[Rfam]
RNA sequence: UAGGCGCGUCGCGACUGGCGCGGGGUGGAUCACCACCGGGGAGCGGCACGAAUCACCAGACUCCGGGGUCGCUCGCCUGGGCCGCGGGU
Numbered sequence: 001u002a003g004g005c006g007c008g009u010c011g012c013g014a015c016u017g018g019c020g021c022g023g024g025g026u027g028g029a030u031c032a033c034c035a036c037c038g039g040g041g042a043g044c045g046g047c048a049c050g051a052a053u054c055a056c057c058a059g060a061c062u063c064c065g066g067g068g069u070c071g072c073u074c075g076c077c078u079g080g081g082c083c084g085c086g087g088g089u
Stems, first nucleotide, its partner, number of pairs: 005050002008047005015040002017077004025036004067083004
Shown here is an 89-nucleotide sequence from Actinomyces bowdenii, a member of the family "ZMP/ZTP riboswitch aptamer (pfl RNA motif)". Taxonomically the source falls in Actinomyces (Bacteria, Bacillati, Actinomycetota, Actinomycetes).